[Rfam]
RNA: Mammalian CPEB3 ribozyme
RNA sequence: UAUGCUACAUAGGUCAUAGCAGAAGCACUCAUGGUGUGGUCUGUCAAAUACCAAUGAAUUUGCAAAUUCUGCU
Dot-bracket structure: ...........[[[[..((((((((((.......)))]]]]...(((((.(....).)))))....)))))))